[Rfam]
RNA sequence: UCGCCCACAAUCUGUUGAAACGGUUUCAACACGGAUGGGAUCGGGCGCGCAGUGCAAAUAUCGCGUGUCUCGAUGGUCGGCAAGGUUCGAAGCUCUUUUCAGGGGCAUCCGUGUUGGGAUCGUUCUUCGAUUUGGUAUCGAAGUCUCCCACAGUUGGUCUCCUCGCGCUAACCCCGUAGCGUGUGGUUUUUAGCGGGCUCCAGGCCCGCUUUUUUUU
Numbered sequence: 001u002c003g004c005c006c007a008c009a010a011u012c013u014g015u016u017g018a019a020a021c022g023g024u025u026u027c028a029a030c031a032c033g034g035a036u037g038g039g040a041u042c043g044g045g046c047g048c049g050c051a052g053u054g055c056a057a058a059u060a061u062c063g064c065g066u067g068u069c070u071c072g073a074u075g076g077u078c079g080g081c082a083a084g085g086u087u088c089g090a091a092g093c094u095c096u097u098u099u100c101a102g103g104g105g106c107a108u109c110c111g112u113g114u115u116g117g118g119a120u121c122g123u124u125c126u127u128c129g130a131u132u133u134g135g136u137a138u139c140g141a142a143g144u145c146u147c148c149c150a151c152a153g154u155u156g157g158u159c160u161c162c163u164c165g166c167g168c169u170a171a172c173c174c175c176g177u178a179g180c181g182u183g184u185g186g187u188u189u190u191u192a193g194c195g196g197g198c199u200c201c202a203g204g205c206c207c208g209c210u211u212u213u214u215u216u217u
Stems, first nucleotide, its partner, number of pairs: 005157003019124013033110005040074002045068006052061003077090004093104004126142005161186002164183007192210008